[Rfam]
RNA sequence: CGUUGUAGGCGGUGGUGAUCCGCGGAGUGGUUUUAGUCGGUAGGCGCCUGGCGGAGUUGUGGGCUAGCCCUCCUCCAAUAGGUGAUCUGACACUACCCGGUGGGUCGCUCCCCCGGGUGUCUUUUGAAGAUUUCCACUUCGACAAC
Numbered sequence: 001c002g003u004u005g006u007a008g009g010c011g012g013u014g015g016u017g018a019u020c021c022g023c024g025g026a027g028u029g030g031u032u033u034u035a036g037u038c039g040g041u042a043g044g045c046g047c048c049u050g051g052c053g054g055a056g057u058u059g060u061g062g063g064c065u066a067g068c069c070c071u072c073c074u075c076c077a078a079u080a081g082g083u084g085a086u087c088u089g090a091c092a093c094u095a096c097c098c099g100g101u102g103g104g105u106c107g108c109u110c111c112c113c114c115g116g117g118u119g120u121c122u123u124u125u126g127a128a129g130a131u132u133u134c135c136a137c138u139u140c141g142a143c144a145a146c
Base pairs, nucleotide, nucleotide: 002146003145004144005143006142023141024140025139026138027137028136029135030134036091037090038089039088040087045084046083047082048081049080050079051072053070093119095118096117097116098115099114
Background: Shown here is a 146-nucleotide RNA from Mycetomoellerius zeteki, a member of the family "R2 RNA element". The match comes from Rfam's covariance-model search (40 bits). This family represents the 3' UTR region of the R2 retrotransposable element. This family is known to interact with the R2-encoded reverse transcriptase in a reaction known as target primed reverse transcription (TPRT). Lineage of the source: Eukaryota > Opisthokonta > Altocrustacea > Aculeata > Mycetomoellerius. Rfam 15.1 lists 3,698 matches to the family in 74 species.